[Rfam]
RNA sequence: UGUCUUUGAAUCUUGGCACUGGGAGAAUUCACAGUUGAUUUUAUUAUUCUGUGGUUCUGCGGGUGCCAAAAUUGAAAUAA
Number, nucleotide and partner (000 for none) at each position: 001u000002g000003u000004c000005u076006u075007u074008g073009a072010a000011u000012c000013u069014u068015g067016g066017c065018a064019c000020u062021g000022g060023g058024a000025g057026a056027a055028u000029u054030c053031a052032c051033a050034g049035u000036u000037g000038a000039u000040u000041u000042u000043a000044u000045u000046a000047u000048u000049c034050u033051g032052u031053g030054g029055u027056u026057c025058u023059g000060c022061g000062g020063g000064u018065g017066c016067c015068a014069a013070a000071a000072u009073u008074g007075a006076a005077a000078u000079a000080a000